Record summary:
A member of the RNA family "mir-145 microRNA precursor family" from Eptesicus fuscus, 81 nucleotides long. On this family, see Chen et al., Genes Dev 2005: "The developmental miRNA profiles of zebrafish as determined by small RNA cloning". The source organism's lineage runs through Eukaryota, Metazoa, Bilateria, Eutheria and Eptesicus. Gene Ontology terms of the family: miRNA-mediated post-transcriptional gene silencing and RISC complex.
[Rfam]
RNA sequence: UGUCCUCACGGUCCAGUUUUCCCAGGAAUCCCUUAGAUGCUAAGAUGGGGAUUCCUGGAAAUACUGUUCUUGAGGUCAUGG
Numbered sequence: 001u002g003u004c005c006u007c008a009c010g011g012u013c014c015a016g017u018u019u020u021c022c023c024a025g026g027a028a029u030c031c032c033u034u035a036g037a038u039g040c041u042a043a044g045a046u047g048g049g050g051a052u053u054c055c056u057g058g059a060a061a062u063a064c065u066g067u068u069c070u071u072g073a074g075g076u077c078a079u080g081g
Base pairs, nucleotide, nucleotide: 014066015065016064017063019061020060022058023057024056025055026054027053028052029051030050031049032048033047

Pairs were carried over by alignment from the consensus structure, which was predicted with RNAalifold.